[Rfam]
RNA sequence: GUGACAUUUAUGAAGGCUUGCGCUGAAAGUAGAAACUCUACUAGCGCAAGCCCGAUGCUCUUCUC
Number, nucleotide and partner (000 for none) at each position: 001g065002u000003g063004a062005c000006a000007u000008u000009u000010a000011u000012g000013a000014a000015g052016g051017c050018u049019u048020g047021c046022g045023c044024u043025g000026a000027a000028a000029g000030u040031a039032g038033a000034a000035a000036c000037u000038c032039u031040a030041c000042u000043a024044g023045c022046g021047c020048a019049a018050g017051c016052c015053c000054g000055a000056u000057g000058c000059u000060c000061u000062u004063c003064u000065c001
This 65-nucleotide RNA from Triplophysa tibetana belongs to the Rfam family "Selenocysteine insertion sequence 1".
From the family's description: The incorporation of selenocysteine into a protein sequence is directed by an in-frame UGA codon (usually a stop codon) within the coding region of the mRNA. Selenoprotein mRNAs contain a conserved secondary structure in the 3' UTR that is required for the distinction of UGA stop from UGA selenocysteine.
Taxonomically the source falls in Triplophysa (Eukaryota, Deuterostomia, Gnathostomata, Cypriniphysae).
Its family is annotated with selenocysteine incorporation in the Gene Ontology.
By type it is a cis-regulatory element.